[Rfam]
RNA sequence: CGCGGGGAUAGGCCGGCCAGCCGACAAGCGAGUAAAGCCCACUCGUUUCCCCGCGCACCUAAGGG
Numbered sequence: 001c002g003c004g005g006g007g008a009u010a011g012g013c014c015g016g017c018c019a020g021c022c023g024a025c026a027a028g029c030g031a032g033u034a035a036a037g038c039c040c041a042c043u044c045g046u047u048u049c050c051c052c053g054c055g056c057a058c059c060u061a062a063g064g065g
Base pairs, nucleotide, nucleotide: 001055002054003053004052005051006050007049008048011022012021013020028046029045030044031043032042040065

Rfam assigns this 65-nucleotide RNA sequence from Methylocystis parvus to the family "int-alpA RNA". The family has 167 seed sequences and 577 matches in Rfam 15.1. Acidobacteria (1 example), Planctomycetes (1 example), Proteobacteria. Taxonomically the source falls in Methylocystis (Bacteria, Pseudomonadota, Hyphomicrobiales, Methylocystaceae). The family's consensus secondary structure is taken from published work. The family's RNA type in Rfam is small RNA.